[Rfam]
RNA sequence: AAAGAUAACAUUUGCCAUGAGCGGCACAGGUAGGGCAACUUGAUUGCUCUGUGUUGUGGCAUCAACAUCAAAAGGUUUUGGGAGCAUAAUUUUUUGGUACAUGGGCAGCUGGUGAUUGUAGUCCCAGCACACUU
Number, nucleotide and partner (000 for none) at each position: 001a000002a000003a000004g000005a000006u000007a000008a000009c084010a000011u082012u081013u026014g025015c024016c023017a000018u000019g000020a000021g000022c000023g016024g015025c014026a013027c056028a055029g054030g052031u051032a050033g049034g048035g047036c046037a045038a044039c000040u000041u000042g000043a000044u038045u037046g036047c035048u034049c033050u032051g031052u030053g000054u029055u028056g027057u080058g079059g078060c000061a076062u075063c074064a000065a000066c000067a000068u000069c000070a000071a000072a000073a000074g063075g062076u061077u000078u059079u058080g057081g012082g011083a000084g009085c000086a000087u000088a000089a000090u000091u000092u000093u000094u000095u000096g000097g000098u000099a000100c000101a000102u000103g132104g000105g130106c000107a000108g128109c127110u126111g125112g124113u000114g123115a122116u121117u000118g000119u000120a000121g116122u115123c114124c112125c111126a110127g109128c108129a000130c105131a000132c103133u000134u000

The record is a 134-nucleotide sequence from Castor canadensis, which matches "U11 spliceosomal RNA" in Rfam. The match comes from Rfam's covariance-model search (57 bits). The family's consensus secondary structure is taken from published work. The family's RNA type in Rfam is spliceosomal small nuclear RNA. The organism belongs to Castor, within Eukaryota. Gene Ontology terms of the family: U11 snRNP, pre-mRNA 5'-splice site binding and mRNA 5'-splice site recognition.